[Rfam]
RNA sequence: GUGCCGGUGAAAGUCCGGUGUGGGUACCUGCCAGGAGGCCCAAUAGCAGACUGGCGGAAUCAGGGGAAACGCCUGGUGUCGAAGCCCAGCGUCGAAAGCACUGUAAGAGGUCGCGCGGAUAGGUCAGGGUCGUCGGGC
Numbered sequence: 001g002u003g004c005c006g007g008u009g010a011a012a013g014u015c016c017g018g019u020g021u022g023g024g025u026a027c028c029u030g031c032c033a034g035g036a037g038g039c040c041c042a043a044u045a046g047c048a049g050a051c052u053g054g055c056g057g058a059a060u061c062a063g064g065g066g067a068a069a070c071g072c073c074u075g076g077u078g079u080c081g082a083a084g085c086c087c088a089g090c091g092u093c094g095a096a097a098g099c100a101c102u103g104u105a106a107g108a109g110g111u112c113g114c115g116c117g118g119a120u121a122g123g124u125c126a127g128g129g130u131c132g133u134c135g136g137g138c
Base pairs, nucleotide, nucleotide: 021042022041023040024039051089052088053087054086055081056080057079059077060076065070098111099110101109102108115133116132117131

Shown here is a 138-nucleotide RNA from Streptomyces kasugaensis, a member of the family "Group II catalytic intron D1-D4-4". Its family is annotated with Group II intron splicing in the Gene Ontology. Rfam 15.1 lists 840 matches to the family in 506 species. Group II introns are found in rRNA, tRNA and mRNA of organelles in fungi, plants and protists, and also in mRNA in bacteria. A reference for the family is Bonen and Vogel (2001), "The ins and outs of group II introns", Trends Genet. The base pairs follow the family's consensus structure. The match comes from Rfam's covariance-model search (58 bits). NCBI's taxonomy places the organism under Bacteria, Actinomycetota, Kitasatosporales, Streptomycetaceae, Streptomyces.